Shown here is a 71-nucleotide RNA from Oryza meyeriana, a member of the family "tRNA".
[Rfam]
RNA sequence: GGCGGCAUGGCCAAGCGGUAAGGCAGGGGACUAUAAAUCCUUUAUCCCCAGUUCAAAUCUGGGUGUCGCCU
Number, nucleotide and partner (000 for none) at each position: 001g070002g069003c068004g067005g066006c065007a064008u000009g000010g024011c023012c022013a000014a000015g000016c000017g000018g000019u000020a000021a000022g012023g011024c010025a000026g042027g041028g040029g039030a038031c000032u000033a000034u000035a000036a000037a000038u030039c029040c028041u027042u026043u000044a000045u000046c000047c063048c062049c061050a060051g059052u000053u000054c000055a000056a000057a000058u000059c051060u050061g049062g048063g047064u007065g006066u005067c004068g003069c002070c001071u000
The source organism's lineage runs through Eukaryota, Euphyllophyta, Petrosaviidae, Poales and Oryza meyeriana.
It scores 60 bits against the family's covariance model.
Pairs were carried over by alignment from the consensus structure, which is taken from published work.